[Rfam]
RNA sequence: CGGGCAGGUCGACCUGCCCGAGCAGCAGAGCCUACUUCCCGGGGACGACCCCG
Numbered sequence: 001c002g003g004g005c006a007g008g009u010c011g012a013c014c015u016g017c018c019c020g021a022g023c024a025g026c027a028g029a030g031c032c033u034a035c036u037u038c039c040c041g042g043g044g045a046c047g048a049c050c051c052c053g
Base pairs, nucleotide, nucleotide: 001020002019003018004017005016006015007014008013040053041052042051043050044049
RNA: Guanidine-II riboswitch aptamer (mini-ykkC)